[Rfam]
RNA sequence: GGCCCUGAUGAUAAUGGUGUCUCUUCUUUCCUCGUCCGAUUCGACCAUGACGACAAGGGAUUUUAUCUCGUUCUCUUAAUGCGAAUGAUUUUGAAAAGAUGUUGCUUCUGUGACAUUUUUUUUUAAUCAUUUGUGUUUGCAAACGGGAACUUUUCUUGCCAGUGUUAUACAACACAUGCAGAUCUGAGCC
Numbered sequence: 001g002g003c004c005c006u007g008a009u010g011a012u013a014a015u016g017g018u019g020u021c022u023c024u025u026c027u028u029u030c031c032u033c034g035u036c037c038g039a040u041u042c043g044a045c046c047a048u049g050a051c052g053a054c055a056a057g058g059g060a061u062u063u064u065a066u067c068u069c070g071u072u073c074u075c076u077u078a079a080u081g082c083g084a085a086u087g088a089u090u091u092u093g094a095a096a097a098g099a100u101g102u103u104g105c106u107u108c109u110g111u112g113a114c115a116u117u118u119u120u121u122u123u124u125a126a127u128c129a130u131u132u133g134u135g136u137u138u139g140c141a142a143a144c145g146g147g148a149a150c151u152u153u154u155c156u157u158g159c160c161a162g163u164g165u166u167a168u169a170c171a172a173c174a175c176a177u178g179c180a181g182a183u184c185u186g187a188g189c190c
Base pairs, nucleotide, nucleotide: 001190002189003188007184008183009182019061020060021059022058023057024056025055032053033052034051035050036049066148067147068146069145070144071143072142078137079136080135081134082133083132084131085130086129087128088127089126090125093123094122095121096120097119098117099116100115101114102113103112104111105110156181157180158179159178162175163174164173165172166171

This 190-nucleotide RNA sequence from Saccharomyces cerevisiae belongs to the Rfam family "Small nucleolar RNA snR190". Gene Ontology terms of the family: RNA processing and nucleolus. It is one of the family's seed sequences. The family's RNA type in Rfam is C/D-box small nucleolar RNA. Pairs were carried over by alignment from the consensus structure, which was predicted with CMfinder.